[Rfam]
RNA sequence: UUAACUCAAAUUUGUAUGCAGUUGGAACAGCGCCCGUAGCGGCAACUUAGGCAAACGUUCCAAUUCCAUACAAAUUUGAGUUA
Numbered sequence: 001u002u003a004a005c006u007c008a009a010a011u012u013u014g015u016a017u018g019c020a021g022u023u024g025g026a027a028c029a030g031c032g033c034c035c036g037u038a039g040c041g042g043c044a045a046c047u048u049a050g051g052c053a054a055a056c057g058u059u060c061c062a063a064u065u066c067c068a069u070a071c072a073a074a075u076u077u078g079a080g081u082u083a
Base pairs, nucleotide, nucleotide: 008077009076010075011074012073013072014071015070016069018067020065021064022063023062024061025060026059027058028057034051035050039046

A member of the RNA family "mir-2807 microRNA precursor family" from Bombyx mori, 83 nucleotides long. A reference for the family is Cai et al. (2010), "Novel microRNAs in silkworm (Bombyx mori)", Funct Integr Genomics. The family's consensus secondary structure was predicted with RNAalifold. The source organism's lineage runs through Eukaryota, Metazoa, Endopterygota, Obtectomera and Bombyx. A search with the family's covariance model found it, with a score of 69 bits. The family has 8 seed sequences and 5,120 matches in Rfam 15.1.